The family of this 98-nucleotide RNA from Arabidopsis lyrata is "MIR774 microRNA precursor family". Taxonomically the source falls in Arabidopsis (Eukaryota, Euphyllophyta, Spermatophyta, Brassicales). Pairs were carried over by alignment from the consensus structure, which was predicted with RNAalifold. The sequence is in the family's curated seed alignment. Rfam links the family to the GO terms miRNA-mediated post-transcriptional gene silencing and RISC complex. The family has 4 seed sequences and 4 matches in Rfam 15.1.
RNA sequence: UCACUUGAGAUGAAGAUUUGGAUGACAAAUACUUAAAACUUUGGUAAAUUUAAAUUACCAAUUUAAUUAUCUGUCACCCAAAUCUUCCUCUCAGGUUU
Number, nucleotide and partner (000 for none) at each position: 001u000002c000003a096004c095005u094006u093007g092008a091009g090010a089011u000012g087013a086014a085015g084016a083017u082018u081019u080020g079021g078022a000023u076024g075025a074026c073027a072028a000029a070030u069031a068032c000033u066034u065035a064036a063037a062038a000039c000040u000041u061042u060043g059044g058045u057046a000047a056048a055049u054050u000051u000052a000053a000054a049055u048056u047057a045058c044059c043060a042061a041062u037063u036064u035065a034066a033067u000068u031069a030070u029071c000072u027073g026074u025075c024076a023077c000078c021079c020080a019081a018082a017083u016084c015085u014086u013087c012088c000089u010090c009091u008092c007093a006094g005095g004096u003097u000098u000